[Rfam]
Shown here is a 59-nucleotide RNA sequence from Allobogoriella caseilytica, a member of the family "msiK RNA". Pairs were carried over by alignment from the consensus structure, which is taken from published work. NCBI's taxonomy places the organism under Bacteria, Bacillati, Actinomycetes, Allobogoriellaceae, Allobogoriella. It is annotated as a cis-regulatory element.
RNA sequence: CCCUGGCACCUUUCACAACGGAUCGUCCGGCACGUACCUGCCGGUGAAGGGAUUGCAGA
Numbered sequence: 001c002c003c004u005g006g007c008a009c010c011u012u013u014c015a016c017a018a019c020g021g022a023u024c025g026u027c028c029g030g031c032a033c034g035u036a037c038c039u040g041c042c043g044g045u046g047a048a049g050g051g052a053u054u055g056c057a058g059a
Stems, first nucleotide, its partner, number of pairs: 009051007027044006